[Rfam]
Description:
This 93-nucleotide RNA from Citricoccus sp. SGAir0253 belongs to the Rfam family "SAM riboswitch aptamer (S box leader)". Rfam describes the family as follows. The SAM riboswitch is found upstream of a number of genes which code for proteins involved in methionine or cysteine biosynthesis in Gram-positive bacteria. The SAM riboswitch acts at the level of transcription termination control. The predicted structure consists of a complex stem-loop region followed by a single stem loop terminator region. An alternative and mutually exclusive form involves bases in the 3' segment of helix 1 with those in the 5' region of helix 5 to form a structure termed the anti-terminator form. Pairs were carried over by alignment from the consensus structure, which is taken from published work. Taxonomically the source falls in Citricoccus (Bacteria, Actinomycetes, Micrococcales, Micrococcaceae). A search with the family's covariance model found it, with a score of 61 bits.
RNA sequence: UAACCAUCCAGAGCGGCCGAGAGAUCUGGCUCGACGACGCCGCAGCAACCCGCCCGACAGGGGCCAGGGUGCUACCGCCAGGAUCGAUGGAAG
Dot-bracket structure: (..(((((....(((((...(((..[[[[)))......)))))((((.((.(((.......)))...))))))...(]]]]...))))))..)